[Rfam]
A member of the RNA family "BsrG" from Psychrobacillus glaciei, 318 nucleotides long.
Its family is annotated with autolysis and toxin activity in the Gene Ontology.
bsrE, bsrG and bsrH pair through intermolecular interactions with antisense sRNAs. They form type I toxin/antitoxin system that includes an mRNA encoding for a short, toxic peptide (bsrE, bsrG and bsrH) and an antitoxin that is comprised of an antisense RNA. bsrG encodes a 39-amino-acid toxin, and the 180 nucleotide antisense sRNA called SR4 acts as the antitoxin (they overlap by 123 nucleotides). SR4 interaction with the 3'UTR of bsrG RNA promotes bsrG degradation and inhibits its translation. BsrG interferes with cell envelope biosynthesis, causes membrane invaginations and delocalisation of the cell wall synthesis and initiates autolysis. bsrE RNA encodes 30 amino-acid toxin peptide. Its antitoxin gene, SR5 overlaps by 112 nucleotides at the 3' end of bsrE. SR5 also overlaps bsrG from nucleotide 163 to 52 (Rfam overlap check). The antitoxin SR5 promotes bsrE degradation but unlike SR4 it does not directly inhibits toxin mRNA translation.
Taxonomically the source falls in Psychrobacillus (Bacteria, Bacillati, Bacilli, Bacillaceae).
Rfam classes the family as a small RNA.

RNA sequence: GGAUAAUAGAUUGGUAGCUCAAGGGUGGUUAGCUCACUCCCGUACGAAUUAUUGGAAGGGAGACUAAGUUCGCCGCAUCCAGCGGCAACGUCUCCAUGACCCACAUCGUGUGGGCCUGUGGUGCUAGUGUCAGUAUUCGAAGUAUUGAUGUUCGCAGUAGCUUUUGCAACAUUGGUCGUAGUAAUUCUGUCAUUUAACCAUAAAAAAUAACCCAUCCUUGAGUUGAGUGCUCGAUGGGUUAUUACCUAUUCAAUAGCCAAUCCCCCUUGAAGGGAACCUACUAUUAUAUUUGGUCGUUUGAUGUUAACGCAUCAAAUG
Dot-bracket structure: (.(((.(((.(((((..((((((((.((((...(((..(((((((((..........................................................)))))))))....))).......(.(((.(.......(............)........(((.............))).).))).).................))))..))))))))..........(...........)..........)))))((((.......)))).....))).))).).....((((((((((....))))))))))
Numbered sequence: 001g002g003a004u005a006a007u008a009g010a011u012u013g014g015u016a017g018c019u020c021a022a023g024g025g026u027g028g029u030u031a032g033c034u035c036a037c038u039c040c041c042g043u044a045c046g047a048a049u050u051a052u053u054g055g056a057a058g059g060g061a062g063a064c065u066a067a068g069u070u071c072g073c074c075g076c077a078u079c080c081a082g083c084g085g086c087a088a089c090g091u092c093u094c095c096a097u098g099a100c101c102c103a104c105a106u107c108g109u110g111u112g113g114g115c116c117u118g119u120g121g122u123g124c125u126a127g128u129g130u131c132a133g134u135a136u137u138c139g140a141a142g143u144a145u146u147g148a149u150g151u152u153c154g155c156a157g158u159a160g161c162u163u164u165u166g167c168a169a170c171a172u173u174g175g176u177c178g179u180a181g182u183a184a185u186u187c188u189g190u191c192a193u194u195u196a197a198c199c200a201u202a203a204a205a206a207a208u209a210a211c212c213c214a215u216c217c218u219u220g221a222g223u224u225g226a227g228u229g230c231u232c233g234a235u236g237g238g239u240u241a242u243u244a245c246c247u248a249u250u251c252a253a254u255a256g257c258c259a260a261u262c263c264c265c266c267u268u269g270a271a272g273g274g275a276a277c278c279u280a281c282u283a284u285u286a287u288a289u290u291u292g293g294u295c296g297u298u299u300g301a302u303g304u305u306a307a308c309g310c311a312u313c314a315a316a317u318g
Stems, first nucleotide, its partner, number of pairs: 001289001003287003007283003011260005018222008027212004034121003039114009129191001131189003135185001143156001165183003233245001261275004295318010